[Rfam]
RNA: Small nucleolar RNA snoR99
RNA sequence: GUGCUUUAGGGAUGAACAAGUCCCUCACAUUCAUCUUUAUCCAUCCUGUUCACUUUGUCAGCUGUCUUUUUUGUGUCUCGCUGAUCAUUUUUCGAUGGAAAAUUC
Numbered sequence: 001g002u003g004c005u006u007u008a009g010g011g012a013u014g015a016a017c018a019a020g021u022c023c024c025u026c027a028c029a030u031u032c033a034u035c036u037u038u039a040u041c042c043a044u045c046c047u048g049u050u051c052a053c054u055u056u057g058u059c060a061g062c063u064g065u066c067u068u069u070u071u072u073g074u075g076u077c078u079c080g081c082u083g084a085u086c087a088u089u090u091u092u093c094g095a096u097g098g099a100a101a102a103u104u105c
Stems, first nucleotide, its partner, number of pairs: 040099006057085006064078001